[Rfam]
RNA sequence: GGGUCAAUGAUGAGAACUCAUAUGGUCUCGAAGACAGAUGAUGACCUAAAAAUUAUGCUCAAUAGGAUUACGCUGAGGCCC
Numbered sequence: 001g002g003g004u005c006a007a008u009g010a011u012g013a014g015a016a017c018u019c020a021u022a023u024g025g026u027c028u029c030g031a032a033g034a035c036a037g038a039u040g041a042u043g044a045c046c047u048a049a050a051a052a053u054u055a056u057g058c059u060c061a062a063u064a065g066g067a068u069u070a071c072g073c074u075g076a077g078g079c080c081c
Base pairs, nucleotide, nucleotide: 001081002080003079004078005075006074008072009071
RNA: Small nucleolar RNA SNORD115
Organism: Felis catus